[Rfam]
RNA: Small nucleolar RNA U109
RNA sequence: CUGCAUGAUGGAAACUUGUCAUUCUUCUUUCUUCUGGGAGAAUGAAUAUUCCUUCAAUGCUAUAAAAAUCAAGGAGUUUUCAGGGCCACCUGCCUUGGAGUAGAGGCUGAGUGGUAGUAUAUUUCUCCUACAUUA
Numbered sequence: 001c002u003g004c005a006u007g008a009u010g011g012a013a014a015c016u017u018g019u020c021a022u023u024c025u026u027c028u029u030u031c032u033u034c035u036g037g038g039a040g041a042a043u044g045a046a047u048a049u050u051c052c053u054u055c056a057a058u059g060c061u062a063u064a065a066a067a068a069u070c071a072a073g074g075a076g077u078u079u080u081c082a083g084g085g086c087c088a089c090c091u092g093c094c095u096u097g098g099a100g101u102a103g104a105g106g107c108u109g110a111g112u113g114g115u116a117g118u119a120u121a122u123u124u125c126u127c128c129u130a131c132a133u134u135a
Base pairs, nucleotide, nucleotide: 003060004059005058006057020044021043022042023041024040025039026038027037073128074127075126076125085115086114089111090109092107093106094105095104096103